[Rfam]
RNA sequence: GGGCUAGUGGCGCAAUGGAAACGUGUCUGACUACGGAUCAGAAGAUUCUAGGUUCGACUCCUGGCUAGCUCG
Number, nucleotide and partner (000 for none) at each position: 001g071002g070003g069004c068005u067006a066007g065008u000009g000010g024011c023012g022013c000014a000015a000016u000017g000018g000019a000020a000021a000022c012023g011024u010025g000026u042027c041028u040029g039030a038031c000032u000033a000034c000035g000036g000037a000038u030039c029040a028041g027042a026043a000044g000045a000046u000047u000048c064049u063050a062051g061052g060053u000054u000055c000056g000057a000058c000059u000060c052061c051062u050063g049064g048065c007066u006067a005068g004069c003070u002071c001072g000
RNA: tRNA
Organism: Labrus bergylta